RNA: Actinobacteria sRNA Ms_AS-4
RNA sequence: ACGGGCGUCGCUGAAGCGGGUCCGGUCGUCUCCGAUCUCGGCGAGCACCCGGGCACCGGUCAGCUUACCCAGGCCGGGGAAGC
Numbered sequence: 001a002c003g004g005g006c007g008u009c010g011c012u013g014a015a016g017c018g019g020g021u022c023c024g025g026u027c028g029u030c031u032c033c034g035a036u037c038u039c040g041g042c043g044a045g046c047a048c049c050c051g052g053g054c055a056c057c058g059g060u061c062a063g064c065u066u067a068c069c070c071a072g073g074c075c076g077g078g079g080a081a082g083c
Stems, first nucleotide, its partner, number of pairs: 008044006018038005024032002056079002060077002063074002